Overview: This 167-nucleotide sequence from Hyphomonas sp. L-53-1-40 belongs to the Rfam family "TPP riboswitch aptamer (THI element)". NCBI's taxonomy places the organism under Bacteria, Pseudomonadati, Pseudomonadota, Alphaproteobacteria, Hyphomonas.
RNA sequence: CGGCCAUCCGAGGGGCGCGUCUGGUAAGCGCUGAGAUGGAGCUGAAGUCAGCGAGGAAAAGUGGGAACCGUUUUCCGCCCGCGCUGACCGUUCAAAAGAACACCGCUCCAGCACCCUUUGAACCUGAUCCGGUUUGCGCCGGCGUAGGGACGGAAUGGCAUAGUGGG
Numbered sequence: 001c002g003g004c005c006a007u008c009c010g011a012g013g014g015g016c017g018c019g020u021c022u023g024g025u026a027a028g029c030g031c032u033g034a035g036a037u038g039g040a041g042c043u044g045a046a047g048u049c050a051g052c053g054a055g056g057a058a059a060a061g062u063g064g065g066a067a068c069c070g071u072u073u074u075c076c077g078c079c080c081g082c083g084c085u086g087a088c089c090g091u092u093c094a095a096a097a098g099a100a101c102a103c104c105g106c107u108c109c110a111g112c113a114c115c116c117u118u119u120g121a122a123c124c125u126g127a128u129c130c131g132g133u134u135u136g137c138g139c140c141g142g143c144g145u146a147g148g149g150a151c152g153g154a155a156u157g158g159c160a161u162a163g164u165g166g167g
Base pairs, nucleotide, nucleotide: 007154008153009152010151011117012116013115014114016111017031018030019029020028039109040107041106042105123148124147125146126145129142130141131140132139